[Rfam]
RNA sequence: CCCUCUCUCAGGUUCUGGCGGCCCUCGGAAUAGCCAGAACUUUUCACGCCAGCGCAAGCUGGCGUUUUUUU
Number, nucleotide and partner (000 for none) at each position: 001c000002c000003c000004u000005c000006u000007c000008u000009c000010a042011g041012g040013u039014u038015c037016u036017g035018g034019c033020g000021g000022c028023c027024c000025u000026c000027g023028g022029a000030a000031u000032a000033g019034c018035c017036a016037g015038a014039a013040c012041u011042u010043u000044u000045c000046a000047c064048g063049c062050c061051a060052g059053c058054g000055c000056a000057a000058g053059c052060u051061g050062g049063c048064g047065u000066u000067u000068u000069u000070u000071u000
RNA: Burkholderia sRNA 54
Organism: Paraburkholderia phenazinium